[Rfam]
RNA sequence: UGAGAACUAUGAUCCAGGAGGUUACGCAUCGCAAGAUGGAUUUCUGGGGAGCGAAUGUCAGGUUCAAGAAACCAGGCGGCAG
Numbered sequence: 001u002g003a004g005a006a007c008u009a010u011g012a013u014c015c016a017g018g019a020g021g022u023u024a025c026g027c028a029u030c031g032c033a034a035g036a037u038g039g040a041u042u043u044c045u046g047g048g049g050a051g052c053g054a055a056u057g058u059c060a061g062g063u064u065c066a067a068g069a070a071a072c073c074a075g076g077c078g079g080c081a082g
Stems, first nucleotide, its partner, number of pairs: 014047003018044004025038002029034001056081004062077003
RNA: S10-Clostridia ribosomal protein leader